Shown here is an 89-nucleotide RNA sequence from Tetzosporium hominis, a member of the family "BsrC". It is annotated as a small RNA. It scores 60 bits against the family's covariance model. Pairs were carried over by alignment from the consensus structure, which was predicted with CMfinder. From the family's description: The 301 nucleotide sequence from Kouji Nakamura has been trimmed to a highly conserved ~85 nucleotide long core to form this family. For this family Rfam cites "Novel small RNA-encoding genes in the intergenic regions of Bacillus subtilis" (Saito et al., Gene, 2008).
[Rfam]
RNA sequence: UCUAACUUAAGCAACGAAAACCCUACCUACUUUUUCGUCAUUGCGGCCCUAUAGCCGCGCCAGUAAAGAAUAAGCAUCUUCAAAAACAU
Numbered sequence: 001u002c003u004a005a006c007u008u009a010a011g012c013a014a015c016g017a018a019a020a021c022c023c024u025a026c027c028u029a030c031u032u033u034u035u036c037g038u039c040a041u042u043g044c045g046g047c048c049c050u051a052u053a054g055c056c057g058c059g060c061c062a063g064u065a066a067a068g069a070a071u072a073a074g075c076a077u078c079u080u081c082a083a084a085a086a087c088a089u
Base pairs, nucleotide, nucleotide: 035069036068041062042059043058044057045056046055047054